[Rfam]
RNA sequence: GGCGAACUGCGCUUCCCGACAGGUGUAACAGCAUCCCCGGGGCCUUAUUGAUCUCUAAGGGAGCUGUCCCUGUGAAGGCUUGCGGGCUUUCGCAUAUGGCGCCCACCUACUUUGUAGGUUCCCGGGAUCAAUCACUACCAUCGGCCGUCGUGGUCGCCG
Numbered sequence: 001g002g003c004g005a006a007c008u009g010c011g012c013u014u015c016c017c018g019a020c021a022g023g024u025g026u027a028a029c030a031g032c033a034u035c036c037c038c039g040g041g042g043c044c045u046u047a048u049u050g051a052u053c054u055c056u057a058a059g060g061g062a063g064c065u066g067u068c069c070c071u072g073u074g075a076a077g078g079c080u081u082g083c084g085g086g087c088u089u090u091c092g093c094a095u096a097u098g099g100c101g102c103c104c105a106c107c108u109a110c111u112u113u114g115u116a117g118g119u120u121c122c123c124g125g126g127a128u129c130a131a132u133c134a135c136u137a138c139c140a141u142c143g144g145c146c147g148u149c150g151u152g153g154u155c156g157c158c159g
Base pairs, nucleotide, nucleotide: 002157003156006154007153008152009151010150011149012147015144017143018142019141034127035126036125037124039122040121041120042119043118044117059104060103061102063100064099065098066097067096072093073092074091075090076089077088078087